[Rfam]
Background: The record is a 132-nucleotide sequence from Castor canadensis, which matches "Small nucleolar RNA SNORA51" in Rfam. It scores 146 bits against the family's covariance model. ACA51 is a member of the H/ACA class of snoRNA that guide the sites of modification of uridines to pseudouridines. It is annotated as an H/ACA-box small nucleolar RNA.

RNA sequence: AGCCUCCUGGUGCUUACCACAGGCUGUGUUCUUACACUGACUGUAUAGAAGAAGGAGGCAAAGUAAACCUACCCCAUGUACACCUCAGCCCAGGCCUUGUGCCUGGUCUGUAUUGUAAAUGGGGUGGGAGAA
Numbered sequence: 001a002g003c004c005u006c007c008u009g010g011u012g013c014u015u016a017c018c019a020c021a022g023g024c025u026g027u028g029u030u031c032u033u034a035c036a037c038u039g040a041c042u043g044u045a046u047a048g049a050a051g052a053a054g055g056a057g058g059c060a061a062a063g064u065a066a067a068c069c070u071a072c073c074c075c076a077u078g079u080a081c082a083c084c085u086c087a088g089c090c091c092a093g094g095c096c097u098u099g100u101g102c103c104u105g106g107u108c109u110g111u112a113u114u115g116u117a118a119a120u121g122g123g124g125u126g127g128g129a130g131a132a
Base pairs, nucleotide, nucleotide: 002059003058004057005056006055007054008053020043021042022041026037027036028035029034072124073123074122075121076120077119086110087109088108090106091105092104093103094102095101
Dot-bracket structure: .(((((((...........(((...((((....))))...))).........)))))))............((((((........(((.((((((.....)))))).)))........))))))........